A member of the RNA family "tRNA" from Prosthecochloris sp. CIB 2401, 74 nucleotides long.
The match comes from Rfam's covariance-model search (73 bits).
It is annotated as a transfer RNA.
Lineage of the source: Bacteria > Pseudomonadati > Chlorobiota > Chlorobiia > Prosthecochloris.

RNA sequence: GGGCGGUUAGCUCAGUUGGUUAGAGCGCAUGCUUCACACGCAUGAGGUCACAGGUUCGACUCCUGUACCGCCCA
Dot-bracket structure: (((((((..((((.........)))).(((((.......))))).....(((((.......)))))))))))).

The base pairs follow the family's consensus structure, which is taken from published work.